RNA sequence: UUUAGAACUCAAGAUAUGGGCUGAUUAUUGAACAAUGUCUAGGCUGUAGGAUAGAUUUAGACUUCUUCGUUGUUGCUAUAAGUUGGACUUGAAAACGACCUUUUUAAAUCUUGGACUCCACAUGAAAGUUGUAGGCCUAUAUCUUACUGAAGUUUUCUAAA
Numbered sequence: 001u002u003u004a005g006a007a008c009u010c011a012a013g014a015u016a017u018g019g020g021c022u023g024a025u026u027a028u029u030g031a032a033c034a035a036u037g038u039c040u041a042g043g044c045u046g047u048a049g050g051a052u053a054g055a056u057u058u059a060g061a062c063u064u065c066u067u068c069g070u071u072g073u074u075g076c077u078a079u080a081a082g083u084u085g086g087a088c089u090u091g092a093a094a095a096c097g098a099c100c101u102u103u104u105u106a107a108a109u110c111u112u113g114g115a116c117u118c119c120a121c122a123u124g125a126a127a128g129u130u131g132u133a134g135g136c137c138u139a140u141a142u143c144u145u146a147c148u149g150a151a152g153u154u155u156u157c158u159a160a161a
Base pairs, nucleotide, nucleotide: 002160003159004158005157006156007155008152009151011145012144013143014142015141016140017139018138019137020136021134022133023132027129028128029127035123036122037121042118043117045115048112049111050110051109052108054105055104060099063097072088073087074086
MIR2912 microRNA precursor family: a 161-nucleotide RNA from Populus tomentosa. Its family is annotated with miRNA-mediated post-transcriptional gene silencing and RISC complex in the Gene Ontology. The match comes from Rfam's covariance-model search (108 bits). The family's consensus secondary structure was predicted with RNAalifold. The organism belongs to Populus, within Eukaryota.